[Rfam]
RNA: Glycine riboswitch aptamer
RNA sequence: GCGAAUCUGAAAAGCGGGCCCCCGAACGGGCCCCACCCACGGUGCAAGCCGCAAGGCGAACCUCUCAGGUGCCGAUGACAGAUGGGGAGGG
Numbered sequence: 001g002c003g004a005a006u007c008u009g010a011a012a013a014g015c016g017g018g019c020c021c022c023c024g025a026a027c028g029g030g031c032c033c034c035a036c037c038c039a040c041g042g043u044g045c046a047a048g049c050c051g052c053a054a055g056g057c058g059a060a061c062c063u064c065u066c067a068g069g070u071g072c073c074g075a076u077g078a079c080a081g082a083u084g085g086g087g088a089g090g091g
Base pairs, nucleotide, nucleotide: 002086005083006082007081008080009079016033017032018031019030035070036069037068039065042064044062048057049056